[Rfam]
RNA: c-di-GMP-II-GAG riboswitch aptamer
RNA sequence: UCGAGUUGGGGAUGCAGUGAUCCGCGGGCCGAAGUCGGUCACCUCUCGCAUCAGGCGAGUGGCGCGCGGGGAGCAAGUGGUGAGACCGCCCCCUUGA
Numbered sequence: 001u002c003g004a005g006u007u008g009g010g011g012a013u014g015c016a017g018u019g020a021u022c023c024g025c026g027g028g029c030c031g032a033a034g035u036c037g038g039u040c041a042c043c044u045c046u047c048g049c050a051u052c053a054g055g056c057g058a059g060u061g062g063c064g065c066g067c068g069g070g071g072a073g074c075a076a077g078u079g080g081u082g083a084g085a086c087c088g089c090c091c092c093c094u095u096g097a
Stems, first nucleotide, its partner, number of pairs: 001097005009092003013075003022069005028063002037087002039083005